[Rfam]
RNA sequence: CCCUCCGAAGUUUCCCUCAGGAUAGCAGGAACUCGGAUCAGUUUUAUCAGGUAAAGCGAAUGAUUAGAGGUCUUAGGGUUGAAACAACCUUAACCUAUUCUCAAACUUUAAAUUGGUAAGAAGCCUGACUUGCUUAAUUGAAGCCAGGCACAGAAUGAGAGUUCUUAGUGGGCCAUUUUUGGUAAGCAGAACUGGCGAUGCGGGAUGAACCGAACGCUGAGUUAAGGCAUCUAAAUGCUCGCUCAUGAGACCCCACAAAAGGUGUUGGUUGAUCUAGACAGCAGGACGGUGGCCAUGGAAGUCGGAAUCCGCUAAGGAGUGUGUAACAACACACCUGCCGAAUCAACUAGCCCUGAAAAUGAACGAUGCUGAAGCGAGCUGCCUAUACUCGGCCGUCAGGAGAAGUGCACAUCUCCUGACGAGUAGGAGGGCGUGGAGGUUGUGACGCAGCCUUUGGCGUGAGCCUGGGUGAAACGGCCUCUAGUGCAGAU
Numbered sequence: 001c002c003c004u005c006c007g008a009a010g011u012u013u014c015c016c017u018c019a020g021g022a023u024a025g026c027a028g029g030a031a032c033u034c035g036g037a038u039c040a041g042u043u044u045u046a047u048c049a050g051g052u053a054a055a056g057c058g059a060a061u062g063a064u065u066a067g068a069g070g071u072c073u074u075a076g077g078g079u080u081g082a083a084a085c086a087a088c089c090u091u092a093a094c095c096u097a098u099u100c101u102c103a104a105a106c107u108u109u110a111a112a113u114u115g116g117u118a119a120g121a122a123g124c125c126u127g128a129c130u131u132g133c134u135u136a137a138u139u140g141a142a143g144c145c146a147g148g149c150a151c152a153g154a155a156u157g158a159g160a161g162u163u164c165u166u167a168g169u170g171g172g173c174c175a176u177u178u179u180u181g182g183u184a185a186g187c188a189g190a191a192c193u194g195g196c197g198a199u200g201c202g203g204g205a206u207g208a209a210c211c212g213a214a215c216g217c218u219g220a221g222u223u224a225a226g227g228c229a230u231c232u233a234a235a236u237g238c239u240c241g242c243u244c245a246u247g248a249g250a251c252c253c254c255a256c257a258a259a260a261g262g263u264g265u266u267g268g269u270u271g272a273u274c275u276a277g278a279c280a281g282c283a284g285g286a287c288g289g290u291g292g293c294c295a296u297g298g299a300a301g302u303c304g305g306a307a308u309c310c311g312c313u314a315a316g317g318a319g320u321g322u323g324u325a326a327c328a329a330c331a332c333a334c335c336u337g338c339c340g341a342a343u344c345a346a347c348u349a350g351c352c353c354u355g356a357a358a359a360u361g362a363a364c365g366a367u368g369c370u371g372a373a374g375c376g377a378g379c380u381g382c383c384u385a386u387a388c389u390c391g392g393c394c395g396u397c398a399g400g401a402g403a404a405g406u407g408c409a410c411a412u413c414u415c416c417u418g419a420c421g422a423g424u425a426g427g428a429g430g431g432c433g434u435g436g437a438g439g440u441u442g443u444g445a446c447g448c449a450g451c452c453u454u455u456g457g458c459g460u461g462a463g464c465c466u467g468g469g470u471g472a473a474a475c476g477g478c479c480u481c482u483a484g485u486g487c488a489g490a491u
Stems, first nucleotide, its partner, number of pairs: 001431006011024001013022003027166007042121008054109001055107002061103003066098001068096003073093006080086001123149005129143003172196004177191005201212003216393005222387001226383003235380001237379001240376003260354003264351010281338005287311003293305002312316001317332001321330002394421009432486001434483010450470002456465003
Rfam assigns this 491-nucleotide part of an RNA from Aurelia sp. Incheon-2006 to the family "Eukaryotic large subunit ribosomal RNA". It is one of the family's seed sequences. Lineage of the source: Eukaryota > Opisthokonta > Semaeostomeae > Ulmaridae > Aurelia. Pairs were carried over by alignment from the consensus structure, which is taken from published work.